[Rfam]
RNA sequence: AAUAGUUUUAUGCCACAUCAGUAUUUUCAUCCUAAAUUUCAGGAUUUUAAUUUGGAAUUGAUUUUUUUCUAGGAUAAAAAUCCUGAAAUUUAGGAUGAAAAUAUUGAUGUGACAUAAAACUAUU
Number, nucleotide and partner (000 for none) at each position: 001a124002a123003u122004a121005g120006u119007u118008u117009u116010a115011u114012g113013c000014c111015a110016c109017a108018u107019c106020a105021g104022u103023a102024u101025u100026u099027u098028c000029a096030u095031c094032c093033u092034a091035a090036a089037u088038u087039u086040c000041a084042g083043g000044a000045u080046u079047u078048u077049a000050a000051u000052u000053u000054g000055g000056a000057a000058u000059u000060g000061a000062u000063u000064u000065u000066u000067u000068u000069c000070u000071a000072g000073g000074a000075u000076a000077a048078a047079a046080a045081u000082c000083c042084u041085g000086a039087a038088a037089u036090u035091u034092a033093g032094g031095a030096u029097g000098a027099a026100a025101a024102u023103a022104u021105u020106g019107a018108u017109g016110u015111g014112a000113c012114a011115u010116a009117a008118a007119a006120c005121u004122a003123u002124u001
A member of the RNA family "MIR7504 microRNA precursor family" from Gossypium australe, 124 nucleotides long. A search with the family's covariance model found it, with a score of 85 bits. Lineage of the source: Eukaryota > Spermatophyta > Gunneridae > Malvales > Gossypium. Pairs were carried over by alignment from the consensus structure, which was predicted with RNAalifold.